[Rfam]
RNA: Small nucleolar RNA SNORA70
Organism: Erinaceus europaeus
RNA sequence: CUGCAGCCAAUUAAGCGGACCAUGCUGCCCUCCCCAUGGCUCCUGGUGUGCAGUGGCUGCAAACAGCAGCCUCCUGGGUAGUGUAUGCAGCCUGUUGUUUGUAUAGCCUGCCCUGAGGGACCCUGGAGACAGCC
Numbered sequence: 001c002u003g004c005a006g007c008c009a010a011u012u013a014a015g016c017g018g019a020c021c022a023u024g025c026u027g028c029c030c031u032c033c034c035c036a037u038g039g040c041u042c043c044u045g046g047u048g049u050g051c052a053g054u055g056g057c058u059g060c061a062a063a064c065a066g067c068a069g070c071c072u073c074c075u076g077g078g079u080a081g082u083g084u085a086u087g088c089a090g091c092c093u094g095u096u097g098u099u100u101g102u103a104u105a106g107c108c109u110g111c112c113c114u115g116a117g118g119g120a121c122c123c124u125g126g127a128g129a130c131a132g133c134c
Stems, first nucleotide, its partner, number of pairs: 002052004019047004027040002077122003088110003092106002